[Rfam]
RNA sequence: CCGGCACUCAUGACGGCCUGCCUGCAAACCAGUCCGCUGGUGAGGUAGACCUGAGGAACUGGCGUG
Number, nucleotide and partner (000 for none) at each position: 001c066002c000003g000004g063005c062006a000007c000008u000009c000010a000011u000012g000013a000014c000015g051016g050017c000018c048019u047020g046021c045022c044023u043024g000025c000026a000027a000028a000029c000030c039031a038032g037033u000034c000035c000036g000037c032038u031039g030040g000041u000042g000043a023044g022045g021046u020047a019048g018049a000050c016051c015052u000053g000054a000055g000056g000057a000058a000059c000060u000061g000062g005063c004064g000065u000066g001
The record is a 66-nucleotide RNA sequence from Jaculus jaculus, which matches "Selenocysteine insertion sequence 1" in Rfam.
The base pairs follow the family's consensus structure, which is taken from published work.
The incorporation of selenocysteine into a protein sequence is directed by an in-frame UGA codon (usually a stop codon) within the coding region of the mRNA. Selenoprotein mRNAs contain a conserved secondary structure in the 3' UTR that is required for the distinction of UGA stop from UGA selenocysteine. The selenocysteine insertion sequence (SECIS) is around 60 nt in length and adopts a hairpin structure which is sufficiently well-defined and conserved to act as a computational screen for selenoprotein genes.
By type it is a cis-regulatory element.